Rfam assigns this 48-nucleotide RNA from Streptomyces niveus to the family "raiA-hairpin RNA".

RNA sequence: CGCCAAGUCCGAGGCCUCGAUGCCCAUCGAGGUCGGGUGCAAGAGGGA
Numbered sequence: 001c002g003c004c005a006a007g008u009c010c011g012a013g014g015c016c017u018c019g020a021u022g023c024c025c026a027u028c029g030a031g032g033u034c035g036g037g038u039g040c041a042a043g044a045g046g047g048a
Base pairs, nucleotide, nucleotide: 013034014033015032016031017030018029019028020027
Lineage of the source: Bacteria > Bacillati > Actinomycetota > Actinomycetes > Streptomyces niveus.